[Rfam]
RNA sequence: GUUAUCAAUGAUUGUAUGCUAAUUUUUUUUACCAUGCUAAUGCUGAUAAUUGAUGAUUGAUAAGUUCAGUUUAUCAUGCUGAGGGAACU
Numbered sequence: 001g002u003u004a005u006c007a008a009u010g011a012u013u014g015u016a017u018g019c020u021a022a023u024u025u026u027u028u029u030u031a032c033c034a035u036g037c038u039a040a041u042g043c044u045g046a047u048a049a050u051u052g053a054u055g056a057u058u059g060a061u062a063a064g065u066u067c068a069g070u071u072u073a074u075c076a077u078g079c080u081g082a083g084g085g086a087a088c089u
Base pairs, nucleotide, nucleotide: 001088002087003086005084
A member of the RNA family "Small nucleolar RNA snoR53Y" from Trifolium pratense, 89 nucleotides long. It scores 45 bits against the family's covariance model. Taxonomically the source falls in Trifolium (Eukaryota, Streptophyta, Streptophytina, Spermatophyta). Rfam links the family to the GO terms RNA processing and nucleolus. Clan: snoR53 clan.